[Rfam]
RNA sequence: UGGAGCUGAGGUAGUAGAUUGAAUAGUUGUGGGGUUGUGUAACCUCUUUUUAAAAUAACUAUACAAUCUACUGUCUUUCCCAA
Numbered sequence: 001u002g003g004a005g006c007u008g009a010g011g012u013a014g015u016a017g018a019u020u021g022a023a024u025a026g027u028u029g030u031g032g033g034g035u036u037g038u039g040u041a042a043c044c045u046c047u048u049u050u051u052a053a054a055a056u057a058a059c060u061a062u063a064c065a066a067u068c069u070a071c072u073g074u075c076u077u078u079c080c081c082a083a
Stems, first nucleotide, its partner, number of pairs: 001083001003081001005079001008077014023062005032045004047054002

Shown here is an 83-nucleotide sequence from Neolamprologus brichardi, a member of the family "let-7 microRNA precursor family". The match comes from Rfam's covariance-model search (65 bits). The family has 64 seed sequences and 8,694 matches in Rfam 15.1. Clan: let-7 microRNA precursor clan. On this family, see Rougvie, Nat Rev Genet 2001: "Control of developmental timing in animals". This family represents the microRNAs (miRNA) let-7 and mir-98. let-7 was identified from a study of developmental timing in C. elegans, and was later shown to be part of a much larger class of non-coding RNAs termed miRNAs.